[Rfam]
RNA sequence: AAGCGUUGAACUGUAGUGCCGGUCAAGCGGUGACGACAGGGAGCUUCUCUUAGGGGGUUGCACAGAUUCCACGACUUGACUCAGGCGGUGUGCCGCUGAAAGAAAAUGUGCUGC
Numbered sequence: 001a002a003g004c005g006u007u008g009a010a011c012u013g014u015a016g017u018g019c020c021g022g023u024c025a026a027g028c029g030g031u032g033a034c035g036a037c038a039g040g041g042a043g044c045u046u047c048u049c050u051u052a053g054g055g056g057g058u059u060g061c062a063c064a065g066a067u068u069c070c071a072c073g074a075c076u077u078g079a080c081u082c083a084g085g086c087g088g089u090g091u092g093c094c095g096c097u098g099a100a101a102g103a104a105a106a107u108g109u110g111c112u113g114c
Stems, first nucleotide, its partner, number of pairs: 001046004011039004016034002018031004023079004062109003084097004